[Rfam]
RNA: Plastid-rps18 3UTR RNA
Organism: Podococcus barteri
RNA sequence: CGCAAGUAUUUUACGAUUAAGAAGCAAUCGCUUCUUGUACAGAUUUUGUAUUAAUCU
Numbered sequence: 001c002g003c004a005a006g007u008a009u010u011u012u013a014c015g016a017u018u019a020a021g022a023a024g025c026a027a028u029c030g031c032u033u034c035u036u037g038u039a040c041a042g043a044u045u046u047u048g049u050a051u052u053a054a055u056c057u
Stems, first nucleotide, its partner, number of pairs: 018037008